The record is an 85-nucleotide RNA from Galleria mellonella, which matches "mir-927 microRNA precursor family" in Rfam.
[Rfam]
RNA sequence: CCGUAGCUAUUCCGUUUUAGAAUCCAAACGCUUUGCCCAAUAACUUGGCAACGGUAAAGCGUAGGAAUUCUAAAACAAAAACACU
Numbered sequence: 001c002c003g004u005a006g007c008u009a010u011u012c013c014g015u016u017u018u019a020g021a022a023u024c025c026a027a028a029c030g031c032u033u034u035g036c037c038c039a040a041u042a043a044c045u046u047g048g049c050a051a052c053g054g055u056a057a058a059g060c061g062u063a064g065g066a067a068u069u070c071u072a073a074a075a076c077a078a079a080a081a082c083a084c085u
Stems, first nucleotide, its partner, number of pairs: 010079002014076008023067001025065001028062007036054002
Its family is annotated with RISC complex and miRNA-mediated post-transcriptional gene silencing in the Gene Ontology.